The family of this 92-nucleotide RNA sequence from Rhododendron simsii is "Small nucleolar RNA Z43". It scores 97 bits against the family's covariance model. The literature on the family includes a 2003 paper in Nucleic Acids Res by Chen et al., "The high diversity of snoRNAs in plants: identification and comparative study of 120 snoRNA genes from Oryza sativa".
[Rfam]
RNA sequence: GGACUAUGAUGAAUGUGAUUGGUCUCGUUCGUCGUAACGGCAGAAAUGCCUUGCCGACCAUCCUGAUAUAUCACCACCCAUAAACUGAGUCC
Numbered sequence: 001g002g003a004c005u006a007u008g009a010u011g012a013a014u015g016u017g018a019u020u021g022g023u024c025u026c027g028u029u030c031g032u033c034g035u036a037a038c039g040g041c042a043g044a045a046a047u048g049c050c051u052u053g054c055c056g057a058c059c060a061u062c063c064u065g066a067u068a069u070a071u072c073a074c075c076a077c078c079c080a081u082a083a084a085c086u087g088a089g090u091c092c
Stems, first nucleotide, its partner, number of pairs: 001092004042052002

Rfam links the family to the GO terms nucleolus and RNA processing.